Rfam assigns this 74-nucleotide sequence from Caenorhabditis remanei to the family "mir-55 microRNA precursor family". The family's consensus secondary structure was predicted with RNAalifold. Lineage of the source: Eukaryota > Rhabditida > Rhabditina > Rhabditoidea > Caenorhabditis.
RNA sequence: AUGGGACUCGGCAGAAGCACUUGGGGUAUACUUCACAGAGUAACUAUACCCGUAUUUGUUUCUGCUGAGCCCCU
Numbered sequence: 001a002u003g004g005g006a007c008u009c010g011g012c013a014g015a016a017g018c019a020c021u022u023g024g025g026g027u028a029u030a031c032u033u034c035a036c037a038g039a040g041u042a043a044c045u046a047u048a049c050c051c052g053u054a055u056u057u058g059u060u061u062c063u064g065c066u067g068a069g070c071c072c073c074u
Stems, first nucleotide, its partner, number of pairs: 003072003007069012024051007032042001
Its family is annotated with RISC complex and miRNA-mediated post-transcriptional gene silencing in the Gene Ontology.